[Rfam]
RNA sequence: AUGCGCCCCCCUGUACACUUCGGUUCCUGCGCGCUGUCCGCCUCCACCCGACAGCGACUGGCGAGGUUUCGUUAGCC
Numbered sequence: 001a002u003g004c005g006c007c008c009c010c011c012u013g014u015a016c017a018c019u020u021c022g023g024u025u026c027c028u029g030c031g032c033g034c035u036g037u038c039c040g041c042c043u044c045c046a047c048c049c050g051a052c053a054g055c056g057a058c059u060g061g062c063g064a065g066g067u068u069u070c071g072u073u074a075g076c077c
Base pairs, nucleotide, nucleotide: 002017003016005014006013021036022035023034024033026031048075050073051072052071054069

Rfam assigns this 77-nucleotide RNA from Xanthomonas albilineans to the family "Xanthomonas sRNA sX9". On this family, see Schmidtke et al., Nucleic Acids Res 2011: "Genome-wide transcriptome analysis of the plant pathogen Xanthomonas identifies sRNAs with putative virulence functions". The source organism's lineage runs through Bacteria, Pseudomonadati, Pseudomonadota, Gammaproteobacteria and Xanthomonas albilineans.